The family of this 31-nucleotide RNA from Tachuris rubrigastra is "Iron response element II". The family's consensus secondary structure is taken from published work. The literature on the family includes a 2012 paper in FEBS Lett by Walden et al., "Accommodating variety in iron-responsive elements: Crystal structure of transferrin receptor 1 B IRE bound to iron regulatory protein 1". Rfam's curators write: IRE, TFRC, SLC40A1, SDHB, SLC11A2, CDC42BPA, ACO2, ALAS2_H.SAPIENS, CDC14A, EPAS1, ALAS2, qoxD, Hao1, NDUFS1, transferrin, Aconitate. NCBI's taxonomy places the organism under Eukaryota, Gnathostomata, Dipnotetrapodomorpha, Sauropsida, Tachuris. The match comes from Rfam's covariance-model search (36 bits). Gene Ontology term of the family: response to iron ion.
RNA sequence: ACAGUAUCUGCAGCAGUGCCUGCAAUAUUGU
Numbered sequence: 001a002c003a004g005u006a007u008c009u010g011c012a013g014c015a016g017u018g019c020c021u022g023c024a025a026u027a028u029u030g031u
Base pairs, nucleotide, nucleotide: 001031002030003029004028005027006026007025009024010023011022012021013020014018